Record summary
Shown here is a 301-nucleotide sequence from Gopherus agassizii, a member of the family "RNase MRP". It scores 161 bits against the family's covariance model. Rfam describes the family as follows. RNase MRP is an enzymatically active ribonucleoprotein with two distinct roles in eukaryotes. In mitochondria it plays a direct role in the initiation of mitochondrial DNA replication. In the nucleus it is involved in precursor rRNA processing, where it cleaves the internal transcribed spacer 1 between 18S and 5.8S rRNAs. Despite distinct functions, RNase MRP has been shown to be evolutionarily related to RNase P. Like eukaryotic RNase P, RNase MRP is not catalytically active without associated protein subunits. The organism belongs to Gopherus, within Eukaryota. For this family Rfam cites "Identification and analysis of ribonuclease P and MRP RNA in a broad range of eukaryotes" (Piccinelli et al., Nucleic Acids Res, 2005).
RNA sequence: GGGCGUUCUGAAGACCUGCUCUCUAGGCCACAUGCUGAGGACCCUGGUUCCUCGAGGGCUCCCGAGCCCGCCUAGGGGAAAGUCCCCGGACCCCCGGCAGAGAGUGCCGCGCGCCCGGUAGCGCGCAGUGACCCGCCUCGCAGGCUCACGUUCUCCCGCCGAGAAGCCCCUCGGGCUGAGCGGGUGGGCGCGGGAUGGGCUGCCCGUCACUCCCACAGGAACGCAGGUAGUGCGCAGGCGCGGUUCCCUCCGGGGGAUCCCGCUGCCGCACCAACACAACGGGGCUCAUUCUCAGAACGCC
Numbered sequence: 001g002g003g004c005g006u007u008c009u010g011a012a013g014a015c016c017u018g019c020u021c022u023c024u025a026g027g028c029c030a031c032a033u034g035c036u037g038a039g040g041a042c043c044c045u046g047g048u049u050c051c052u053c054g055a056g057g058g059c060u061c062c063c064g065a066g067c068c069c070g071c072c073u074a075g076g077g078g079a080a081a082g083u084c085c086c087c088g089g090a091c092c093c094c095c096g097g098c099a100g101a102g103a104g105u106g107c108c109g110c111g112c113g114c115c116c117g118g119u120a121g122c123g124c125g126c127a128g129u130g131a132c133c134c135g136c137c138u139c140g141c142a143g144g145c146u147c148a149c150g151u152u153c154u155c156c157c158g159c160c161g162a163g164a165a166g167c168c169c170c171u172c173g174g175g176c177u178g179a180g181c182g183g184g185u186g187g188g189c190g191c192g193g194g195a196u197g198g199g200c201u202g203c204c205c206g207u208c209a210c211u212c213c214c215a216c217a218g219g220a221a222c223g224c225a226g227g228u229a230g231u232g233c234g235c236a237g238g239c240g241c242g243g244u245u246c247c248c249u250c251c252g253g254g255g256g257a258u259c260c261c262g263c264u265g266c267c268g269c270a271c272c273a274a275c276a277c278a279a280c281g282g283g284g285c286u287c288a289u290u291c292u293c294a295g296a297a298c299g300c301c
Base pairs, nucleotide, nucleotide: 002301003300004299005298006297007296008295009294010293011292014228015227016226017225018224019223022076023075024074025073026072027071028070037053038052039051040050041049043047081286082285084284085283086282087281096108097107098106099105109126110125111124112123113122114121128200129199135196137194138193139192140191144189145188146187147186156183157182158181159180166176167175168174169173230271231270232269233268234267